[Rfam]
RNA: Streptomyces-metK RNA
RNA sequence: GCGAGACGGGUGGGCCGGUGGCCGAGCGCGACCGAUAAACUGUUUUCCGGACGGCGCAGGGCGCAGCCCCCGUGCCGUCCACCAAUGAUCAGACAGCAGCCGCUGCAACCCCAGGGAG
Numbered sequence: 001g002c003g004a005g006a007c008g009g010g011u012g013g014g015c016c017g018g019u020g021g022c023c024g025a026g027c028g029c030g031a032c033c034g035a036u037a038a039a040c041u042g043u044u045u046u047c048c049g050g051a052c053g054g055c056g057c058a059g060g061g062c063g064c065a066g067c068c069c070c071c072g073u074g075c076c077g078u079c080c081a082c083c084a085a086u087g088a089u090c091a092g093a094c095a096g097c098a099g100c101c102g103c104u105g106c107a108a109c110c111c112c113a114g115g116g117a118g
Stems, first nucleotide, its partner, number of pairs: 049080006057074001059071003094105004